Bacterial RNase P class A: a 308-nucleotide RNA sequence from Maribacter hydrothermalis.
The family's RNA type in Rfam is ribozyme.

RNA sequence: UCAGCAGGCCGCCUUAUCGCUGCCAAGUAAUUGGGAGAGGAAAGUCCGGACACCAUAGUGCAGUAUAGCGGGUAACGCCCGUCCGCAGAGAUGUGAGGACAAGUGCAACAGAAAGCAAGUACAGUUCGGCUGUAGUGAAACCAGGUAAACUCUAUACGGUGAAACGUCAUGUAAAUCGGUGCUUGAGGGCUGCACGCCCAAGCCGAAGGGUAGGCGGUUAGAGCUUUGGGGUAACCCUUUGCCUAGAUAAAUGAUAAGGAAUUCUGAUUUUUUGGAAUACAGAAUCCGGCUUAUGGCCUGCUUUUUUU
Numbered sequence: 001u002c003a004g005c006a007g008g009c010c011g012c013c014u015u016a017u018c019g020c021u022g023c024c025a026a027g028u029a030a031u032u033g034g035g036a037g038a039g040g041a042a043a044g045u046c047c048g049g050a051c052a053c054c055a056u057a058g059u060g061c062a063g064u065a066u067a068g069c070g071g072g073u074a075a076c077g078c079c080c081g082u083c084c085g086c087a088g089a090g091a092u093g094u095g096a097g098g099a100c101a102a103g104u105g106c107a108a109c110a111g112a113a114a115g116c117a118a119g120u121a122c123a124g125u126u127c128g129g130c131u132g133u134a135g136u137g138a139a140a141c142c143a144g145g146u147a148a149a150c151u152c153u154a155u156a157c158g159g160u161g162a163a164a165c166g167u168c169a170u171g172u173a174a175a176u177c178g179g180u181g182c183u184u185g186a187g188g189g190c191u192g193c194a195c196g197c198c199c200a201a202g203c204c205g206a207a208g209g210g211u212a213g214g215c216g217g218u219u220a221g222a223g224c225u226u227u228g229g230g231g232u233a234a235c236c237c238u239u240u241g242c243c244u245a246g247a248u249a250a251a252u253g254a255u256a257a258g259g260a261a262u263u264c265u266g267a268u269u270u271u272u273u274g275g276a277a278u279a280c281a282g283a284a285u286c287c288g289g290c291u292u293a294u295g296g297c298c299u300g301c302u303u304u305u306u307u308u
Stems, first nucleotide, its partner, number of pairs: 003302009012259007020037002023034004042292003046289005051161004058195004063157005068082005083097001084095004098152002103150002105146002120134006165216004176206005187199004223242002228237003